This 59-nucleotide RNA sequence from Streptomyces sp. Ag109_G2-6 belongs to the Rfam family "msiK RNA". The base pairs follow the family's consensus structure, which is taken from published work. A search with the family's covariance model found it, with a score of 53 bits. The source organism's lineage runs through Bacteria, Bacillati, Actinomycetota, Streptomycetaceae and Streptomyces.
[Rfam]
RNA sequence: GGACUAGACCUUCCACUCGGAUCGUCCGGCACGUUCCUGCCGGUAGAAGGGAUGCAUCA
Dot-bracket structure: ........(((((.(..........((((((......))))))).))))).........